[Rfam]
RNA sequence: AAUUAAACCUGAUGGCAGCAAAAAUCCUUUUUGUUGCAUAGGUUGCUGGUAGAAACCUCGCAGGUUUUAAAAACCUGCGAGGUUUAAAAGGUUGCAAUGACAAAAAGAUUGUAGCGAACAGCAGGGCUGAAU
Numbered sequence: 001a002a003u004u005a006a007a008c009c010u011g012a013u014g015g016c017a018g019c020a021a022a023a024a025u026c027c028u029u030u031u032u033g034u035u036g037c038a039u040a041g042g043u044u045g046c047u048g049g050u051a052g053a054a055a056c057c058u059c060g061c062a063g064g065u066u067u068u069a070a071a072a073a074c075c076u077g078c079g080a081g082g083u084u085u086a087a088a089a090g091g092u093u094g095c096a097a098u099g100a101c102a103a104a105a106a107g108a109u110u111g112u113a114g115c116g117a118a119c120a121g122c123a124g125g126g127c128u129g130a131a132u
Stems, first nucleotide, its partner, number of pairs: 009124003013120002018115002023110004029105008
RNA: Flavo-1 RNA